[Rfam]
RNA sequence: UUCAGCUAUGGCGACAUGGUUCCUGGCACUACGAUUGGCAAAGUCGUCGGUGGAGUGUGUUCUCUAAGCGGCGUAUUGGUCAUCGCACUUCCAGUUCCGGUCAUUGUAUCCAAU
Numbered sequence: 001u002u003c004a005g006c007u008a009u010g011g012c013g014a015c016a017u018g019g020u021u022c023c024u025g026g027c028a029c030u031a032c033g034a035u036u037g038g039c040a041a042a043g044u045c046g047u048c049g050g051u052g053g054a055g056u057g058u059g060u061u062c063u064c065u066a067a068g069c070g071g072c073g074u075a076u077u078g079g080u081c082a083u084c085g086c087a088c089u090u091c092c093a094g095u096u097c098c099g100g101u102c103a104u105u106g107u108a109u110c111c112a113a114u
Base pairs, nucleotide, nucleotide: 002113005110007108008107009106010105011104013102014101015100018097019096021094037077038076040074049063050062